[Rfam]
RNA sequence: GGUGACUGGUCUUGAGUGGUGAGUAGAUGCGAGCUUGUGGUCAGUCUAGCACCAUUUGAAAUCAGUGCUCC
Numbered sequence: 001g002g003u004g005a006c007u008g009g010u011c012u013u014g015a016g017u018g019g020u021g022a023g024u025a026g027a028u029g030c031g032a033g034c035u036u037g038u039g040g041u042c043a044g045u046c047u048a049g050c051a052c053c054a055u056u057u058g059a060a061a062u063c064a065g066u067g068c069u070c071c
Base pairs, nucleotide, nucleotide: 001071002070004068005066006065007064008063009062010061012059013058014057016055017054018053019052020051021050024048025047026046027045
The family of this 71-nucleotide RNA from Candidula unifasciata is "mir-29 microRNA precursor family". Its family is annotated with gene silencing by miRNA and RISC complex in the Gene Ontology. A search with the family's covariance model found it, with a score of 47 bits. The family's consensus secondary structure was predicted with PFOLD. On this family, see Ambros, Cell 2001: "microRNAs: tiny regulators with great potential".